[Rfam]
RNA: mir-753 microRNA precursor family
Organism: Schmidtea mediterranea
RNA sequence: UAUUUAAAAGCUUGGAUUGUGAUCUCAUAUAUUUAUGAGAUCAUUAUUCAAGCUCUUAAAUA
Numbered sequence: 001u002a003u004u005u006a007a008a009a010g011c012u013u014g015g016a017u018u019g020u021g022a023u024c025u026c027a028u029a030u031a032u033u034u035a036u037g038a039g040a041u042c043a044u045u046a047u048u049c050a051a052g053c054u055c056u057u058a059a060a061u062a
Stems, first nucleotide, its partner, number of pairs: 002061004007056001009054009019044011